[Rfam]
RNA sequence: UAUUAAGAGCACUUGAUGGAUGCCUUGGCGUCAAGAGGCGAUGAAGGACGUGGUAGGCUGCGAUAAGCUGUGGGGAAUUGUCAGCAAGUUUUGAUCCGCAGAUUUCCGAAUGGGAAAACCCAACUAGCUAAGCUAGUUAUUACAUAAUAUGUAAAGCGAACUUGGUGAACUGAAAUAUCUAAGUAACCAAAGGAAAAGAAAUCAACAGAGAUUCUGUUAGUAGUGACGAGCGAAAGCAGAAGAGGCUAGAGAUUUAAGAAUAAGAUUAGAAUACUCUGGAAGUAGUAACCAUAGAAGGUGAUAGUCCUGUAUAAGUAGAAAGUUUUUAAAUCCUUGAGUAGAACGGGACACGUGGAAUCCUGUUUGAACGUGGGGGGACCAUCCUCCAAGCCUAAAUACUCCUUGACGACCGAUAGUGGACAAGUACCGUGAGGGAAAGGUGAAAAGAACCCCGGGAGGGGAGUGAAAUAGAACCUGAAAUCAGGUGCUUACAAA
Numbered sequence: 001u002a003u004u005a006a007g008a009g010c011a012c013u014u015g016a017u018g019g020a021u022g023c024c025u026u027g028g029c030g031u032c033a034a035g036a037g038g039c040g041a042u043g044a045a046g047g048a049c050g051u052g053g054u055a056g057g058c059u060g061c062g063a064u065a066a067g068c069u070g071u072g073g074g075g076a077a078u079u080g081u082c083a084g085c086a087a088g089u090u091u092u093g094a095u096c097c098g099c100a101g102a103u104u105u106c107c108g109a110a111u112g113g114g115a116a117a118a119c120c121c122a123a124c125u126a127g128c129u130a131a132g133c134u135a136g137u138u139a140u141u142a143c144a145u146a147a148u149a150u151g152u153a154a155a156g157c158g159a160a161c162u163u164g165g166u167g168a169a170c171u172g173a174a175a176u177a178u179c180u181a182a183g184u185a186a187c188c189a190a191a192g193g194a195a196a197a198g199a200a201a202u203c204a205a206c207a208g209a210g211a212u213u214c215u216g217u218u219a220g221u222a223g224u225g226a227c228g229a230g231c232g233a234a235a236g237c238a239g240a241a242g243a244g245g246c247u248a249g250a251g252a253u254u255u256a257a258g259a260a261u262a263a264g265a266u267u268a269g270a271a272u273a274c275u276c277u278g279g280a281a282g283u284a285g286u287a288a289c290c291a292u293a294g295a296a297g298g299u300g301a302u303a304g305u306c307c308u309g310u311a312u313a314a315g316u317a318g319a320a321a322g323u324u325u326u327u328a329a330a331u332c333c334u335u336g337a338g339u340a341g342a343a344c345g346g347g348a349c350a351c352g353u354g355g356a357a358u359c360c361u362g363u364u365u366g367a368a369c370g371u372g373g374g375g376g377g378a379c380c381a382u383c384c385u386c387c388a389a390g391c392c393u394a395a396a397u398a399c400u401c402c403u404u405g406a407c408g409a410c411c412g413a414u415a416g417u418g419g420a421c422a423a424g425u426a427c428c429g430u431g432a433g434g435g436a437a438a439g440g441u442g443a444a445a446a447g448a449a450c451c452c453c454g455g456g457a458g459g460g461g462a463g464u465g466a467a468a469u470a471g472a473a474c475c476u477g478a479a480a481u482c483a484g485g486u487g488c489u490u491a492c493a494a495a
Stems, first nucleotide, its partner, number of pairs: 007490010022475001023440002027411002029408007036400002038157002046107003049062003068101007077089003112121003122138007140154005161192001162190005172179002202209002212396001213240005223231002243393004251333001253329002256326002266314003272287004290294001296308003341365008372387005427434002450461004
RNA: Bacterial large subunit ribosomal RNA, nucleotides 9 to 503